The family of this 84-nucleotide RNA from Bombyx mori is "mir-2807 microRNA precursor family".
The literature on the family includes a 2010 paper in BMC Genomics by Liu et al., "MicroRNAs of Bombyx mori identified by Solexa sequencing".
The base pairs follow the family's consensus structure, which was predicted with RNAalifold.
It scores 68 bits against the family's covariance model.
Its family is annotated with miRNA-mediated post-transcriptional gene silencing and RISC complex in the Gene Ontology.
Nucleotides: 084
Base pairs, nucleotide, nucleotide: 008078009077010076011075012074013073014072015071016070020066021065022064023063024062025061026060027059028058034052035051036050039047040046
Number, partner (000 for none) and nucleotide at each position: 001000u002000u003000a004000a005000c006000c007000c008078a009077a010076a011075u012074u013073u014072g015071u016070a017000u018000a019000c020066a021065g022064u023063u024062g025061g026060a027059a028058c029000a030000g031000c032000g033000c034052u035051c036050u037000u038000g039047g040046u041000g042000g043000c044000a045000a046040a047039c048000g049000u050036a051035g052034a053000c054000a055000a056000a057000c058028g059027u060026u061025c062024c063023a064022a065021c066020u067000c068000c069000a070016u071015a072014c073013a074012a075011a076010u077009u078008u079000g080000a081000g082000u083000c084000a